[Rfam]
RNA sequence: AUUUAUGGAUAAUUGCGCAUUCUUUUUGAAUGUGAGUAAAGUCCAUGCUCACACAAGCUGAGAAGCUUGUAGUGUUCAUGCGUGUCCAAACAAUAAGACACGGUCUUUUAUGAAAAUAAAAGAAACGGCAGUUAAACGAGCUAAGGCUUUGCUAUGCUCAAGUAGACUUGAAAGUGCCACAGUGACGAAGCAACAACGGAAACGUUGUUGGUGGAACGGGUAAACCCCAUGAGUGAGCAACCCAAACUACGGUAGGGGCACUCUUUUCGCAGAAUUCAAUGUAGAAAAGAGGCGAUUACGUUUAAGUAAUCGCAGACAGAUAAUUAUCUCUGGAAAGAUUGCCUAAGAUUUUUCCUAGACAGAACAUGGCUUACAAUA
Number, nucleotide and partner (000 for none) at each position: 001a000002u000003u000004u378005a377006u376007g374008g328009a327010u326011a325012a324013u323014u322015g000016c034017g033018c032019a031020u030021u029022c000023u000024u000025u000026u000027u000028g000029a021030a020031u019032g018033u017034g016035a000036g000037u000038a000039a372040a371041g370042u000043c369044c368045a367046u366047g365048c237049u236050c235051a234052c233053a070054c069055a068056a067057g066058c065059u000060g000061a000062g000063a000064a000065g058066c057067u056068u055069g054070u053071a000072g000073u000074g000075u000076u232077c231078a230079u229080g228081c102082g101083u100084g099085u098086c097087c000088a000089a000090a000091c000092a000093a000094u000095a000096a000097g086098a085099c084100a083101c082102g081103g126104u124105c000106u122107u121108u120109u119110a000111u000112g000113a000114a000115a000116a000117u000118a000119a109120a108121a107122g106123a000124a104125a000126c103127g227128g226129c000130a168131g167132u166133u165134a000135a000136a000137c000138g159139a158140g157141c156142u000143a000144a000145g153146g152147c151148u000149u000150u000151g147152c146153u145154a000155u000156g141157c140158u139159c138160a000161a000162g000163u000164a000165g133166a132167c131168u130169u000170g000171a000172a000173a000174g225175u224176g221177c220178c219179a000180c000181a000182g000183u000184g000185a000186c000187g000188a000189a000190g000191c210192a209193a208194c207195a206196a205197c204198g203199g000200a000201a000202a000203c198204g197205u196206u195207g194208u193209u192210g191211g000212u000213g000214g000215a000216a000217c000218g000219g178220g177221u176222a000223a000224a175225c174226c128227c127228c080229a079230u078231g077232a076233g052234u051235g050236a049237g048238c000239a000240a000241c257242c256243c255244a000245a000246a000247c000248u000249a000250c000251g000252g000253u000254a000255g243256g242257g241258g000259c000260a000261c291262u290263c289264u288265u287266u286267u285268c000269g000270c000271a000272g000273a000274a000275u000276u000277c000278a000279a000280u000281g000282u000283a000284g000285a267286a266287a265288a264289g263290a262291g261292g313293c312294g311295a310296u309297u308298a307299c306300g000301u000302u000303u000304a000305a000306g299307u298308a297309a296310u295311c294312g293313c292314a000315g000316a000317c000318a000319g000320a000321u000322a014323a013324u012325u011326a010327u009328c008329u000330c000331u000332g355333g354334a353335a352336a351337g350338a349339u348340u347341g000342c000343c000344u000345a000346a000347g340348a339349u338350u337351u336352u335353u334354c333355c332356u000357a000358g000359a000360c000361a000362g000363a000364a000365c047366a046367u045368g044369g043370c041371u040372u039373a000374c007375a000376a006377u005378a004
RNA: Bacterial RNase P class B